Annotation: This 102-nucleotide RNA sequence from Mariniplasma anaerobium belongs to the Rfam family "TPP riboswitch aptamer (THI element)". NCBI's taxonomy places the organism under Bacteria, Bacillati, Mollicutes, Acholeplasmataceae, Mariniplasma. Rfam links the family to the GO term thiamine pyrophosphate binding. Pairs were carried over by alignment from the consensus structure, which is taken from published work.

RNA sequence: AUGGUCACUACGGGGAGCUUAAAUGCUGAGAGGACGAGUCAUCGUCGACCCGAAUAACCUGAUCUGGAUCAUACCAGCGGAGGGAUAGUCGUUAAACGAAUC
Numbered sequence: 001a002u003g004g005u006c007a008c009u010a011c012g013g014g015g016a017g018c019u020u021a022a023a024u025g026c027u028g029a030g031a032g033g034a035c036g037a038g039u040c041a042u043c044g045u046c047g048a049c050c051c052g053a054a055u056a057a058c059c060u061g062a063u064c065u066g067g068a069u070c071a072u073a074c075c076a077g078c079g080g081a082g083g084g085a086u087a088g089u090c091g092u093u094a095a096a097c098g099a100a101u102c
Base pairs, nucleotide, nucleotide: 007089008088009087010086011052012051013050014049017026018025033046034045035044036043037042058083059082060081064077065076066075067074